The record is a 106-nucleotide RNA from Solanum lycopersicum, which matches "Small nucleolar RNA Z103" in Rfam.
On this family, see Chen et al., Nucleic Acids Res 2003: "The high diversity of snoRNAs in plants: identification and comparative study of 120 snoRNA genes from Oryza sativa".
The organism belongs to Solanum subgen. Lycopersicon, within Eukaryota.
Rfam 15.1 lists 2,844 matches to the family in 233 species.
Rfam classes the family as a C/D-box small nucleolar RNA.
Pairs were carried over by alignment from the consensus structure, which was predicted with PFOLD.
The match comes from Rfam's covariance-model search (88 bits).
[Rfam]
RNA sequence: UUGGAUAUGAUGAUCAUUUCCCCAGAUGAUCGAAGCUGAAAUUAUUGAGCGCUUUUAUGUAUUUUCUCCUUAUAGGAGAAAAUCCAAGCCAGAAAUUCUGAUCCAU
Dot-bracket structure: .((((................................................................................................)))).